Fluoride riboswitch aptamer (crcB RNA motif): a 62-nucleotide RNA from Paenibacillus sp. oral taxon 786. The match comes from Rfam's covariance-model search (65 bits).

[Rfam]
RNA sequence: ACGCAAUAAGGCGAUGGAGUUCGCCUAAACCGCUCGUUUGAGCUGAUGACUCCUACCAGACU
Numbered sequence: 001a002c003g004c005a006a007u008a009a010g011g012c013g014a015u016g017g018a019g020u021u022c023g024c025c026u027a028a029a030c031c032g033c034u035c036g037u038u039u040g041a042g043c044u045g046a047u048g049a050c051u052c053c054u055a056c057c058a059g060a061c062u
Stems, first nucleotide, its partner, number of pairs: 010025004016053006032043004